RNA sequence: UCCAUGGUUACAUGAUGAAACAUGUGUUGGUAGGGACAUCUGAAUGAAUGUGAUGAAAAUCCAACACCCCUGACUCCAUGGA
Numbered sequence: 001u002c003c004a005u006g007g008u009u010a011c012a013u014g015a016u017g018a019a020a021c022a023u024g025u026g027u028u029g030g031u032a033g034g035g036a037c038a039u040c041u042g043a044a045u046g047a048a049u050g051u052g053a054u055g056a057a058a059a060u061c062c063a064a065c066a067c068c069c070c071u072g073a074c075u076c077c078a079u080g081g082a
Base pairs, nucleotide, nucleotide: 001082002081003080004079005078
Notes: A member of the RNA family "Small nucleolar RNA SNORD74" from Nothobranchius furzeri, 82 nucleotides long. Gene Ontology terms of the family: nucleolus and RNA processing. It is annotated as a C/D-box small nucleolar RNA. The literature on the family includes a 1998 paper in Mol Cell Biol by Smith and Steitz, "Classification of gas5 as a multi-small-nucleolar-RNA (snoRNA) host gene and a member of the 5'-terminal oligopyrimidine gene family reveals common features of snoRNA host genes".